[Rfam]
RNA: mir-5928 microRNA precursor family
RNA sequence: GGUCCAAAUUUGAAGUAGAGCAGAUAAGAAGGAUCAUCUGAUCCUACUAAAUUACUCUACUACGAAUUUGUGCCC
Dot-bracket structure: (((.(((((.((.(((((((.((.(.((.(.((((....)))).).)).).)).))))))).)).))))).))).